A member of the RNA family "mir-216 microRNA precursor family" from Sakesphorus luctuosus, 75 nucleotides long.
[Rfam]
RNA sequence: AAUUGGCUUAAUCUCAGCUGGCAACUGUGAGCAGUCCCCAACCCUCUCACAGCUGCAGCUGGGAUUAUGCUAAAC
Numbered sequence: 001a002a003u004u005g006g007c008u009u010a011a012u013c014u015c016a017g018c019u020g021g022c023a024a025c026u027g028u029g030a031g032c033a034g035u036c037c038c039c040a041a042c043c044c045u046c047u048c049a050c051a052g053c054u055g056c057a058g059c060u061g062g063g064a065u066u067a068u069g070c071u072a073a074a075c
Base pairs, nucleotide, nucleotide: 003073004072005071006070007069009067010066011065012064013063014062015061016060017059021056022055026051027050028049029048030047031046
Gene Ontology terms of the family: miRNA-mediated post-transcriptional gene silencing and RISC complex. Its Rfam clan is "mir-216 clan".